This 79-nucleotide sequence from Zea mays belongs to the Rfam family "Small nucleolar RNA R160". Its family is annotated with nucleolus and RNA processing in the Gene Ontology. Lineage of the source: Eukaryota > Streptophyta > Euphyllophyta > Poales > Zea. It scores 60 bits against the family's covariance model. snoR160 is a C/D box small nucleolar RNA, which acts as a methylation guide for 25S ribosomal RNA in plants. snoR160 has been alternatively named snoZ270 in rice.
[Rfam]
RNA sequence: AGCAAAAUGAUGAGACUGGAACACCUGAAUGUUAUCAUGUGGAGAGCACACAUAUGGUCUUCAAAUUUCUCUGGUUGCU
Number, nucleotide and partner (000 for none) at each position: 001a079002g078003c077004a076005a075006a000007a000008u000009g000010a000011u000012g000013a000014g000015a000016c000017u000018g000019g000020a000021a000022c000023a000024c000025c000026u000027g000028a000029a000030u000031g000032u000033u000034a000035u000036c000037a000038u000039g000040u000041g000042g000043a000044g000045a000046g000047c000048a000049c000050a000051c000052a000053u000054a000055u000056g000057g000058u000059c000060u000061u000062c000063a000064a000065a000066u000067u000068u000069c000070u000071c000072u000073g000074g000075u005076u004077g003078c002079u001
By type it is a C/D-box small nucleolar RNA.